[Rfam]
RNA sequence: CCGCAGGCUCCAGCAUGGGGGUGCCUGGUGUGGCUCCCACCAUUCCUGAAGCUCUGCCAGAGCAUCCUGGGGCCGUUUGAGGCCUCUCCCGGUGCUUCCCGGGGGCGGUUAUGGAAACCCCGGACAUCC
Numbered sequence: 001c002c003g004c005a006g007g008c009u010c011c012a013g014c015a016u017g018g019g020g021g022u023g024c025c026u027g028g029u030g031u032g033g034c035u036c037c038c039a040c041c042a043u044u045c046c047u048g049a050a051g052c053u054c055u056g057c058c059a060g061a062g063c064a065u066c067c068u069g070g071g072g073c074c075g076u077u078u079g080a081g082g083c084c085u086c087u088c089c090c091g092g093u094g095c096u097u098c099c100c101g102g103g104g105g106c107g108g109u110u111a112u113g114g115a116a117a118c119c120c121c122g123g124a125c126a127u128c129c
Stems, first nucleotide, its partner, number of pairs: 003057005016042003021036001023034003068122005083108002086105003090101003

Rfam assigns this 129-nucleotide RNA sequence from Malurus elegans to the family "Small nucleolar RNA SNORA9". Rfam's curators write: ACA9 is a member of the H/ACA class of snoRNA that guide the sites of modification of uridines to pseudouridines. It is annotated as an H/ACA-box small nucleolar RNA. Its family is annotated with nucleolus and RNA processing in the Gene Ontology.